RNA sequence: GCUCGAGUGGCGGAACUGGUAGACGCGCUGGAUUCAAAAUCCAGUUCUUCGGAGUGCGGGUUCGAUUCCCGCCUCGAGUA
Numbered sequence: 001g002c003u004c005g006a007g008u009g010g011c012g013g014a015a016c017u018g019g020u021a022g023a024c025g026c027g028c029u030g031g032a033u034u035c036a037a038a039a040u041c042c043a044g045u046u047c048u049u050c051g052g053a054g055u056g057c058g059g060g061u062u063c064g065a066u067u068c069c070c071g072c073c074u075c076g077a078g079u080a
Base pairs, nucleotide, nucleotide: 001079002078003077004076005075006074007073010026011025012024028044029043030042031041032040056072057071058070059069060068
A member of the RNA family "tRNA" from Kriegella aquimaris, 80 nucleotides long. NCBI's taxonomy places the organism under Bacteria, Pseudomonadati, Flavobacteriia, Flavobacteriales, Kriegella. The base pairs follow the family's consensus structure, which is taken from published work. Its family is annotated with triplet codon-amino acid adaptor activity in the Gene Ontology. From the family's description: Transfer RNA (tRNA) molecules are approximately 80 nucleotides in length. It is annotated as a transfer RNA.